[Rfam]
RNA sequence: GGAAUCUUGAGGAGCCCUGCCCAUAGUACGAGAGGACCUGGGUGGACGAACCUCUGGUAUGCCAGUUGUCACGCCAGUGGCAUGGCUGGUUAGCUACGUUCGGAUAGGAUAACCGCUGAAAGCAUCUAAGCGGGAAGCCUUCUCCAAGAUAAGGAUUCCCGAAACCCUUCGAGGUUUGAAAGACCCCCGGUAGAACACCGGGUUGAUAGGCCAGACGUGGAAGCAUGGUAACAUGUGAAGCUGACUGGUACUAACGGUCAAGA
Numbered sequence: 001g002g003a004a005u006c007u008u009g010a011g012g013a014g015c016c017c018u019g020c021c022c023a024u025a026g027u028a029c030g031a032g033a034g035g036a037c038c039u040g041g042g043u044g045g046a047c048g049a050a051c052c053u054c055u056g057g058u059a060u061g062c063c064a065g066u067u068g069u070c071a072c073g074c075c076a077g078u079g080g081c082a083u084g085g086c087u088g089g090u091u092a093g094c095u096a097c098g099u100u101c102g103g104a105u106a107g108g109a110u111a112a113c114c115g116c117u118g119a120a121a122g123c124a125u126c127u128a129a130g131c132g133g134g135a136a137g138c139c140u141u142c143u144c145c146a147a148g149a150u151a152a153g154g155a156u157u158c159c160c161g162a163a164a165c166c167c168u169u170c171g172a173g174g175u176u177u178g179a180a181a182g183a184c185c186c187c188c189g190g191u192a193g194a195a196c197a198c199c200g201g202g203u204u205g206a207u208a209g210g211c212c213a214g215a216c217g218u219g220g221a222a223g224c225a226u227g228g229u230a231a232c233a234u235g236u237g238a239a240g241c242u243g244a245c246u247g248g249u250a251c252u253a254a255c256g257g258u259c260a261a262g263a
Stems, first nucleotide, its partner, number of pairs: 001159008011145004017045007047102005055096003062089005067082006106140003113133005162177005182259004186202005207253003210249005217241001223236005
A member of the RNA family "Bacterial large subunit ribosomal RNA" from Scardovia inopinata, 263 nucleotides of a longer RNA.
The sequence is in the family's curated seed alignment.